The family of this 133-nucleotide RNA sequence from Salmo trutta is "Small nucleolar RNA SNORA17".

[Rfam]
RNA sequence: CCUGCCCCUUGAGACGUUGCAGUUCGACUGUGCGUGUUGAGCCUGUGUCAUGAGGGGCGCAGAGUAACAGGGCUGUGCCUACGCAGAGGACUCAGAACAGUGGGUACUUGGAGUGAUUGAUAGAACUGAGAUU
Numbered sequence: 001c002c003u004g005c006c007c008c009u010u011g012a013g014a015c016g017u018u019g020c021a022g023u024u025c026g027a028c029u030g031u032g033c034g035u036g037u038u039g040a041g042c043c044u045g046u047g048u049c050a051u052g053a054g055g056g057g058c059g060c061a062g063a064g065u066a067a068c069a070g071g072g073c074u075g076u077g078c079c080u081a082c083g084c085a086g087a088g089g090a091c092u093c094a095g096a097a098c099a100g101u102g103g104g105u106a107c108u109u110g111g112a113g114u115g116a117u118u119g120a121u122a123g124a125a126c127u128g129a130g131a132u133u
Base pairs, nucleotide, nucleotide: 003059004058005057006056007055008054009053010052011051013049014048015047019046020045021044022043023041024040025039026038027037028036068128069127070126073123074122075121076120082115083114087109088108090105091104092103093102

Background: The organism belongs to Salmo, within Eukaryota. A search with the family's covariance model found it, with a score of 47 bits. Rfam describes the family as follows. snoRNA ACA 17 belongs to the H/ACA family of snoRNAs and is predicted to guide pseudouridylation of the 28S rRNA at positions U4659 and U4598. It shares the same host gene together with ACA43. NB This family has a high threshold value to exclude a large number of closely related sequences that do not appear to have conserved H and ACA boxes, and may be pseudogenes. Pairs were carried over by alignment from the consensus structure, which was predicted with RNAalifold.